Vault RNA: a 93-nucleotide RNA sequence from Salvelinus namaycush. It is annotated as a non-coding RNA gene. This family of RNAs are found as part of the enigmatic vault ribonucleoprotein complex. The complex consists of a major vault protein (MVP), two minor vault proteins (VPARP and TEP1), and several small untranslated RNA molecules. The organism belongs to Salvelinus, within Eukaryota.
[Rfam]
RNA sequence: ACGCUGGUUUAGCUCAAUGGUUACUUCAAGCAAAAUCCUGUUUCACGGUCCGCGGGCCAGAAGUACGAACCACGGGCGCUGUCCUGCGUUUUA
Numbered sequence: 001a002c003g004c005u006g007g008u009u010u011a012g013c014u015c016a017a018u019g020g021u022u023a024c025u026u027c028a029a030g031c032a033a034a035a036u037c038c039u040g041u042u043u044c045a046c047g048g049u050c051c052g053c054g055g056g057c058c059a060g061a062a063g064u065a066c067g068a069a070c071c072a073c074g075g076g077c078g079c080u081g082u083c084c085u086g087c088g089u090u091u092u093a
Stems, first nucleotide, its partner, number of pairs: 002088003006084002012077004018072003025069003